[Rfam]
RNA sequence: UACAAUAUAAAAGCGCCAGGACUAGAGUAGAGCCAAAUUAAAAUUUGGAACAUAUGAUUAACUUACCAUGACGUAUGGAGAAGUUGGAGCAUAUGAUAAAAGGAAACUUCUUCUCCGAUGCUAAAGCUUAAAAAAUAAGAAAUAUGAAGCUUUAGCAUCUACGAAGAAGAAAGCGACCGCGCCAAAUUAAAAUUUAGAGCCUCUGCUUUAGUUGACGAGGAUGGGGAGUAUCGAGUCUUCGGCGGGUGCCCCACGGUAGCGCACUACCGUUAACGAUUGAUAAAGCCGGGAAGUGAUUUCUGGAAACAACAUCAAUCAGGUGUUAAAA
Numbered sequence: 001u002a003c004a005a006u007a008u009a010a011a012a013g014c015g016c017c018a019g020g021a022c023u024a025g026a027g028u029a030g031a032g033c034c035a036a037a038u039u040a041a042a043a044u045u046u047g048g049a050a051c052a053u054a055u056g057a058u059u060a061a062c063u064u065a066c067c068a069u070g071a072c073g074u075a076u077g078g079a080g081a082a083g084u085u086g087g088a089g090c091a092u093a094u095g096a097u098a099a100a101a102g103g104a105a106a107c108u109u110c111u112u113c114u115c116c117g118a119u120g121c122u123a124a125a126g127c128u129u130a131a132a133a134a135a136u137a138a139g140a141a142a143u144a145u146g147a148a149g150c151u152u153u154a155g156c157a158u159c160u161a162c163g164a165a166g167a168a169g170a171a172a173g174c175g176a177c178c179g180c181g182c183c184a185a186a187u188u189a190a191a192a193u194u195u196a197g198a199g200c201c202u203c204u205g206c207u208u209u210a211g212u213u214g215a216c217g218a219g220g221a222u223g224g225g226g227a228g229u230a231u232c233g234a235g236u237c238u239u240c241g242g243c244g245g246g247u248g249c250c251c252c253a254c255g256g257u258a259g260c261g262c263a264c265u266a267c268c269g270u271u272a273a274c275g276a277u278u279g280a281u282a283a284a285g286c287c288g289g290g291a292a293g294u295g296a297u298u299u300c301u302g303g304a305a306a307c308a309a310c311a312u313c314a315a316u317c318a319g320g321u322g323u324u325a326a327a328a
Stems, first nucleotide, its partner, number of pairs: 020213008029204004222253005231242004254269006275317006286303007

The family of this 328-nucleotide sequence from Clostridium amylolyticum is "glmS glucosamine-6-phosphate activated ribozyme aptamer". The family's RNA type in Rfam is riboswitch. This entry contains a glucosamine-6-phosphate activated ribozyme that is found in the mRNA for GlmS. GlmS is an enzyme that uses fructose-6-phosphate and glutamine to generate glucosamine-6-phosphate. The ribozyme catalyses self cleavage of the glmS mRNA that is thought to regulate GlmS activity. Gene Ontology terms of the family: catalytic activity and regulation of gene expression. Taxonomically the source falls in Clostridium (Bacteria, Clostridia, Eubacteriales, Clostridiaceae).